[Rfam]
RNA sequence: CUUACUGAGAGUUCCUUGGCAUUCUGUCCACCUCCCUUCUUGACGAUCUUGCAGAAAGUUUGCUUUUUUUGUUUGUUUGGAGGUGGGCAUACUGCCAAUGGAGCUGCGUAGG
Numbered sequence: 001c002u003u004a005c006u007g008a009g010a011g012u013u014c015c016u017u018g019g020c021a022u023u024c025u026g027u028c029c030a031c032c033u034c035c036c037u038u039c040u041u042g043a044c045g046a047u048c049u050u051g052c053a054g055a056a057a058g059u060u061u062g063c064u065u066u067u068u069u070u071g072u073u074u075g076u077u078u079g080g081a082g083g084u085g086g087g088c089a090u091a092c093u094g095c096c097a098a099u100g101g102a103g104c105u106g107c108g109u110a111g112g
Stems, first nucleotide, its partner, number of pairs: 013102001016098006025089011